[Rfam]
RNA sequence: AAAUUUUGCUAGGGGUGCCUUAUGGCUGAGAGAUGAUAUUUCAUUAACCCUUGAACCUGAUCUGGAUAAUGCCAGCGAAGGAAAGCAGCGACUAUUGAUA
Numbered sequence: 001a002a003a004u005u006u007u008g009c010u011a012g013g014g015g016u017g018c019c020u021u022a023u024g025g026c027u028g029a030g031a032g033a034u035g036a037u038a039u040u041u042c043a044u045u046a047a048c049c050c051u052u053g054a055a056c057c058u059g060a061u062c063u064g065g066a067u068a069a070u071g072c073c074a075g076c077g078a079a080g081g082a083a084a085g086c087a088g089c090g091a092c093u094a095u096u097g098a099u100a
Stems, first nucleotide, its partner, number of pairs: 006088005011051004017026003033044004056081003062075004
RNA: TPP riboswitch aptamer (THI element)
Organism: Clostridium bornimense